[Rfam]
RNA: Small nucleolar RNA SNORD105
RNA sequence: UUCAUGAAUGCUCUUAUGAUGAAGCCAUGUGCCUCUGAGCUGCCAUGAUUCUGGCUUCAAAGUAAAUGCUCUGAAGAGUUGGGGAAAAGA
Numbered sequence: 001u002u003c004a005u006g007a008a009u010g011c012u013c014u015u016a017u018g019a020u021g022a023a024g025c026c027a028u029g030u031g032c033c034u035c036u037g038a039g040c041u042g043c044c045a046u047g048a049u050u051c052u053g054g055c056u057u058c059a060a061a062g063u064a065a066a067u068g069c070u071c072u073g074a075a076g077a078g079u080u081g082g083g084g085a086a087a088a089g090a
Stems, first nucleotide, its partner, number of pairs: 002090002005087001011084003